[Rfam]
RNA sequence: CAAGUUCGUCCACUCCACCGCUGGCGGCCCUCCUUUCGGGGAGUGUGACCGCAAGAGGAAAGUCCGGGCAACGCAGGGCACCACGCCGGCUAACGGCCGGGGUUCCGCAGCGAUGCGGGAUACGGAAAGUGCCACAGAAAGCUAUACCGCCCCGCAGCAGUGUGGGGUAAGGGUGAAAACGUGCGGUAAGAGCGCACGCCCUCCGGUGGCAACACGGGAGGGGGGUAAACCCCGUGGGUUGAAAUACCAAGCAGUGUUGCCCUUGCGCGGUUUUGCCGUAGCGGGGGCGGUCGGCCCGGCCGUACACCCAGCAACACGGGUAGGUAGAUAGAGCCGGUGAGCAAUUGCCGGCCUGGAUAAAUGGUGGAGCUCCGGCGGCAACGUCCGGAUGACAGAACCCGGCUUAUCGGAACGAACUUGUUUA
Numbered sequence: 001c002a003a004g005u006u007c008g009u010c011c012a013c014u015c016c017a018c019c020g021c022u023g024g025c026g027g028c029c030c031u032c033c034u035u036u037c038g039g040g041g042a043g044u045g046u047g048a049c050c051g052c053a054a055g056a057g058g059a060a061a062g063u064c065c066g067g068g069c070a071a072c073g074c075a076g077g078g079c080a081c082c083a084c085g086c087c088g089g090c091u092a093a094c095g096g097c098c099g100g101g102g103u104u105c106c107g108c109a110g111c112g113a114u115g116c117g118g119g120a121u122a123c124g125g126a127a128a129g130u131g132c133c134a135c136a137g138a139a140a141g142c143u144a145u146a147c148c149g150c151c152c153c154g155c156a157g158c159a160g161u162g163u164g165g166g167g168u169a170a171g172g173g174u175g176a177a178a179a180c181g182u183g184c185g186g187u188a189a190g191a192g193c194g195c196a197c198g199c200c201c202u203c204c205g206g207u208g209g210c211a212a213c214a215c216g217g218g219a220g221g222g223g224g225g226u227a228a229a230c231c232c233c234g235u236g237g238g239u240u241g242a243a244a245u246a247c248c249a250a251g252c253a254g255u256g257u258u259g260c261c262c263u264u265g266c267g268c269g270g271u272u273u274u275g276c277c278g279u280a281g282c283g284g285g286g287g288c289g290g291u292c293g294g295c296c297c298g299g300c301c302g303u304a305c306a307c308c309c310a311g312c313a314a315c316a317c318g319g320g321u322a323g324g325u326a327g328a329u330a331g332a333g334c335c336g337g338u339g340a341g342c343a344a345u346u347g348c349c350g351g352c353c354u355g356g357a358u359a360a361a362u363g364g365u366g367g368a369g370c371u372c373c374g375g376c377g378g379c380a381a382c383g384u385c386c387g388g389a390u391g392a393c394a395g396a397a398c399c400c401g402g403c404u405u406a407u408c409g410g411a412a413c414g415a416a417c418u419u420g421u422u423u424a
Base pairs, nucleotide, nucleotide: 001420002419003418004417005416006415007414008413010410011409012407013369014368015367016366017365018364019363021055022054024052025051026050027049029047060405061404062403064402065401066400067399068398069241070240071239072238076297077296078295079294081237082236083235084234085233086100087099088098089097090096101123102121103120104119105118106117107116108115109114124232125231129230130229131226132225133224147172148171149168150167151166152165153164154163155162156161180198181197182196183195184194185193200222201220202219203218204217206215207214208213245326246325247324248323255316256315257314258313259312260311288302289301290300291299292298333352334351335350336349337348338347339346340345
A member of the RNA family "Bacterial RNase P class A" from Neolewinella lacunae, 424 nucleotides long.
A search with the family's covariance model found it, with a score of 241 bits.
Rfam classes the family as a ribozyme.